[Rfam]
RNA sequence: GCUCCUGUGGUGGAACUGGCAGACACACUGCACUCAAAAUGCAGCGCCGAAAGGCAUGCGGGUUCGAAUCCCGCCGGGAGCA
Numbered sequence: 001g002c003u004c005c006u007g008u009g010g011u012g013g014a015a016c017u018g019g020c021a022g023a024c025a026c027a028c029u030g031c032a033c034u035c036a037a038a039a040u041g042c043a044g045c046g047c048c049g050a051a052a053g054g055c056a057u058g059c060g061g062g063u064u065c066g067a068a069u070c071c072c073g074c075c076g077g078g079a080g081c082a
Stems, first nucleotide, its partner, number of pairs: 001081007010026003028044005058074005
Dot-bracket structure: (((((((..(((...........))).(((((.......))))).............(((((.......)))))))))))).
Notes: The family of this 82-nucleotide sequence from Trueperella bialowiezensis is "tRNA". Pairs were carried over by alignment from the consensus structure, which is taken from published work. A search with the family's covariance model found it, with a score of 56 bits.